[Rfam]
The record is a 126-nucleotide RNA from Thermococcus kodakarensis, which matches "HgcE RNA (Pab105)" in Rfam. About the family: The HgcE ncRNA gene was identified computationally in AT-rich hyperthermophiles. The genes were named hgcA through hgcG ('high GC').It was also identified as a part of Pab105 H/ACA snoRNA with rRNA targets. Rfam's curators put it in the seed alignment. NCBI's taxonomy places the organism under Archaea, Thermococci, Thermococcales, Thermococcaceae, Thermococcus kodakarensis. By type it is an H/ACA-box small nucleolar RNA.
RNA sequence: GGCCCACAGUGAAGGGAUGAGACGAUGCCGGGCGGACAGGGCCCGGUCUCCGGACCGCUGGAGGGGGUCUCUGGCCGUCAAUGAGAGCGGGGGAUCAGCCGGGCCCACACCGAUUGGUUUCUGUUA
Numbered sequence: 001g002g003c004c005c006a007c008a009g010u011g012a013a014g015g016g017a018u019g020a021g022a023c024g025a026u027g028c029c030g031g032g033c034g035g036a037c038a039g040g041g042c043c044c045g046g047u048c049u050c051c052g053g054a055c056c057g058c059u060g061g062a063g064g065g066g067g068u069c070u071c072u073g074g075c076c077g078u079c080a081a082u083g084a085g086a087g088c089g090g091g092g093g094a095u096c097a098g099c100c101g102g103g104c105c106c107a108c109a110c111c112g113a114u115u116g117g118u119u120u121c122u123g124u125u126a
Stems, first nucleotide, its partner, number of pairs: 039106009050093002055090005067075003